RNA sequence: CCAACGGCUCUUUUCAGAGCCACCUACAUUUUCUCAGAAGAGCGC
Numbered sequence: 001c002c003a004a005c006g007g008c009u010c011u012u013u014u015c016a017g018a019g020c021c022a023c024c025u026a027c028a029u030u031u032u033c034u035c036a037g038a039a040g041a042g043c044g045c
Stems, first nucleotide, its partner, number of pairs: 006021006
The record is a 45-nucleotide sequence from Polypterus senegalus, which matches "Histone 3' UTR stem-loop" in Rfam. A search with the family's covariance model found it, with a score of 37 bits. Rfam classes the family as a cis-regulatory element. The family has 50 seed sequences and 44,596 matches in Rfam 15.1. The source organism's lineage runs through Eukaryota, Bilateria, Cladistia, Polypteridae and Polypterus. Gene Ontology term of the family: mRNA 3'-end processing by stem-loop binding and cleavage.